[Rfam]
RNA sequence: CAAAAGCGUCGCUAGGGUUCCGCACAGUUACUGUGGUCUGGUCCAAGAGCGACCGCGUGCUCGCACGUACACGGAAGGACAAAAGCCUGGGAGUU
Numbered sequence: 001c002a003a004a005a006g007c008g009u010c011g012c013u014a015g016g017g018u019u020c021c022g023c024a025c026a027g028u029u030a031c032u033g034u035g036g037u038c039u040g041g042u043c044c045a046a047g048a049g050c051g052a053c054c055g056c057g058u059g060c061u062c063g064c065a066c067g068u069a070c071a072c073g074g075a076a077g078g079a080c081a082a083a084a085g086c087c088u089g090g091g092a093g094u095u
Stems, first nucleotide, its partner, number of pairs: 008053005015044002020041002022038001023035005055068005070090001072093001076088003
Overview:
The record is a 95-nucleotide RNA sequence from Weissella cibaria, which matches "Guanidine-I riboswitch aptamer" in Rfam. The pairing is the family consensus, mapped onto this sequence. The source organism's lineage runs through Bacteria, Bacillati, Bacillota, Bacilli and Weissella. From the family's description: This family represents a conserved RNA structure found upstream of the ykkC and yxkD genes in Bacillus subtilis and related genes in other bacteria. The function of this family is unclear although it has been suggested that it may function to switch on efflux pumps and detoxification systems in response to harmful environmental molecules. Gene Ontology term of the family: regulation of gene expression.